[Rfam]
RNA sequence: AUUGCUCACUCUCCCUCAAGGGCUUCUAGCGGUAACCGGAGACGGUGAGCUCGAAGCCCAGAGGUAGAGUGGACAAAAU
Dot-bracket structure: .....(((((((.((.(..(((((((..........................))))))).).)).))))))).......
Numbered sequence: 001a002u003u004g005c006u007c008a009c010u011c012u013c014c015c016u017c018a019a020g021g022g023c024u025u026c027u028a029g030c031g032g033u034a035a036c037c038g039g040a041g042a043c044g045g046u047g048a049g050c051u052c053g054a055a056g057c058c059c060a061g062a063g064g065u066a067g068a069g070u071g072g073a074c075a076a077a078a079u
Stems, first nucleotide, its partner, number of pairs: 006072007014064002017061001020059007